[Rfam]
Rfam assigns this 554-nucleotide part of an RNA from Lwoffella lincolnii to the family "Bacterial small subunit ribosomal RNA". Rfam links the family to the GO terms ribosome and structural constituent of ribosome. The family is grouped with related families in Rfam's "SSU clan".
RNA sequence: AAACUGAAGAGUUUGAUCAUGGCUCAGAUUGAACGCUGGCGGCAGGCUUAACACAUGCAAGUCGAACGAAGAGGUCUAGCUUGCUAGACUGAUUAGUGGCGAACGGGUGAGUAACAUUUAGGAAUCUACCUUAUAGAGGGGGAUAGCUCGGGGAAACUCGAAUUAAUACCGCAUACGACCUACGGGUGAAAGGGGGCGCAAGCUCUUGCUAUAAGAUGAGCCUAAACCAGAUUAGCUAGUUGGUGGGGUAAAGGCCUACCAAGGCGACGAUCUGUAGCUGGUCUGAGAGGAUGAUCAGCCACACUGGGACUGAGACACGGCCCAGACUCCUACGGGAGGCAGCAGUGGGGAAUAUUGGACAAUGGGCGAAAGCCUGAUCCAGCCAUGCCGCGUGUGUGAAGAAGGCCUUAUGGUUGUAAAGCACUUUAAGUGGGGAGGAAAAGCUUAUGGAUAACACCCAUAGGUUCUGACGUUACCCACAGAAUAAGCACCGGCUAACUCUGUGCCAGCAGCCGCGGUAAUACAGAGGGUGCAAGCGUUAAUCGGAAUUACUG
Numbered sequence: 001a002a003a004c005u006g007a008a009g010a011g012u013u014u015g016a017u018c019a020u021g022g023c024u025c026a027g028a029u030u031g032a033a034c035g036c037u038g039g040c041g042g043c044a045g046g047c048u049u050a051a052c053a054c055a056u057g058c059a060a061g062u063c064g065a066a067c068g069a070a071g072a073g074g075u076c077u078a079g080c081u082u083g084c085u086a087g088a089c090u091g092a093u094u095a096g097u098g099g100c101g102a103a104c105g106g107g108u109g110a111g112u113a114a115c116a117u118u119u120a121g122g123a124a125u126c127u128a129c130c131u132u133a134u135a136g137a138g139g140g141g142g143a144u145a146g147c148u149c150g151g152g153g154a155a156a157c158u159c160g161a162a163u164u165a166a167u168a169c170c171g172c173a174u175a176c177g178a179c180c181u182a183c184g185g186g187u188g189a190a191a192g193g194g195g196g197c198g199c200a201a202g203c204u205c206u207u208g209c210u211a212u213a214a215g216a217u218g219a220g221c222c223u224a225a226a227c228c229a230g231a232u233u234a235g236c237u238a239g240u241u242g243g244u245g246g247g248g249u250a251a252a253g254g255c256c257u258a259c260c261a262a263g264g265c266g267a268c269g270a271u272c273u274g275u276a277g278c279u280g281g282u283c284u285g286a287g288a289g290g291a292u293g294a295u296c297a298g299c300c301a302c303a304c305u306g307g308g309a310c311u312g313a314g315a316c317a318c319g320g321c322c323c324a325g326a327c328u329c330c331u332a333c334g335g336g337a338g339g340c341a342g343c344a345g346u347g348g349g350g351a352a353u354a355u356u357g358g359a360c361a362a363u364g365g366g367c368g369a370a371a372g373c374c375u376g377a378u379c380c381a382g383c384c385a386u387g388c389c390g391c392g393u394g395u396g397u398g399a400a401g402a403a404g405g406c407c408u409u410a411u412g413g414u415u416g417u418a419a420a421g422c423a424c425u426u427u428a429a430g431u432g433g434g435g436a437g438g439a440a441a442a443g444c445u446u447a448u449g450g451a452u453a454a455c456a457c458c459c460a461u462a463g464g465u466u467c468u469g470a471c472g473u474u475a476c477c478c479a480c481a482g483a484a485u486a487a488g489c490a491c492c493g494g495c496u497a498a499c500u501c502u503g504u505g506c507c508a509g510c511a512g513c514c515g516c517g518g519u520a521a522u523a524c525a526g527a528g529g530g531u532g533c534a535a536g537c538g539u540u541a542a543u544c545g546g547a548a549u550u551a552c553u554g
Stems, first nucleotide, its partner, number of pairs: 009025005027544004032540006039391006045384002047349001052347003056344003061100003066097002069093001073090007107302003117226006125219002130215007138172001140170002146163001148161005178187003192207005228274003235265003240262008277299004281292004304325005327338004355381001357380003363376005394424004404415004428485001430480005438471001444464006488533005499528005509516002